[Rfam]
RNA sequence: AAUGGCAAAUGAUGAACACCUUAUUACCGCUUAUUGAUAUACUGAAGCUCUGUGCUGACUCAAAACUCCGCUUAUUAUCUGAUGCCAUU
Numbered sequence: 001a002a003u004g005g006c007a008a009a010u011g012a013u014g015a016a017c018a019c020c021u022u023a024u025u026a027c028c029g030c031u032u033a034u035u036g037a038u039a040u041a042c043u044g045a046a047g048c049u050c051u052g053u054g055c056u057g058a059c060u061c062a063a064a065a066c067u068c069c070g071c072u073u074a075u076u077a078u079c080u081g082a083u084g085c086c087a088u089u
Stems, first nucleotide, its partner, number of pairs: 003087005

This 89-nucleotide RNA sequence from Cucumis sativus belongs to the Rfam family "Small nucleolar RNA R16". By type it is a C/D-box small nucleolar RNA. NCBI's taxonomy places the organism under Eukaryota, Embryophyta, Gunneridae, Cucurbitaceae, Cucumis.